[Rfam]
RNA sequence: GAUAGGGCUCACGCCCUAUCCUAUGUUAUGCCGUCCUUGCAGGGCU
Numbered sequence: 001g002a003u004a005g006g007g008c009u010c011a012c013g014c015c016c017u018a019u020c021c022u023a024u025g026u027u028a029u030g031c032c033g034u035c036c037u038u039g040c041a042g043g044g045c046u
Stems, first nucleotide, its partner, number of pairs: 001020008033045005

Overview
The record is a 46-nucleotide RNA from Prevotella sp. P5-92, which matches "Acido-Lenti-1 RNA" in Rfam. The source organism's lineage runs through Bacteria, Pseudomonadati, Bacteroidota, Bacteroidia and Prevotella. The match comes from Rfam's covariance-model search (44 bits).